This 155-nucleotide RNA sequence from a Selenomonadales bacterium belongs to the Rfam family "glmS glucosamine-6-phosphate activated ribozyme aptamer". A search with the family's covariance model found it, with a score of 102 bits. Lineage of the source: Bacteria > Bacillati > Bacillota > Negativicutes > Selenomonadales. Rfam describes the family as follows. This entry contains a glucosamine-6-phosphate activated ribozyme that is found in the mRNA for GlmS. GlmS is an enzyme that uses fructose-6-phosphate and glutamine to generate glucosamine-6-phosphate.
RNA sequence: UACGAAGCGUAAGCGCCUGAGCUAGCCCAAAAGGCUAGCUGACGAGGUGGGGGUUUAUCGAGGAUUCGGCGGAUGCCCCCGGGCCUAGGGCGGCUCAAGCCCCGAGCGAAAACCGCCAAGUGAUUGGCGGAACAAUGCUUUGGGCAGCCCUUAAU
Numbered sequence: 001u002a003c004g005a006a007g008c009g010u011a012a013g014c015g016c017c018u019g020a021g022c023u024a025g026c027c028c029a030a031a032a033g034g035c036u037a038g039c040u041g042a043c044g045a046g047g048u049g050g051g052g053g054u055u056u057a058u059c060g061a062g063g064a065u066u067c068g069g070c071g072g073a074u075g076c077c078c079c080c081g082g083g084c085c086u087a088g089g090g091c092g093g094c095u096c097a098a099g100c101c102c103c104g105a106g107c108g109a110a111a112a113c114c115g116c117c118a119a120g121u122g123a124u125u126g127g128c129g130g131a132a133c134a135a136u137g138c139u140u141u142g143g144g145c146a147g148c149c150c151u152u153a154a155u
Base pairs, nucleotide, nucleotide: 020040021039022038023037024036025035026034027033049080050079051078052077053076058069059068060067061066081096082095083094084093085092099145100144101143102142104140105139113130114129115128116127117126118125119124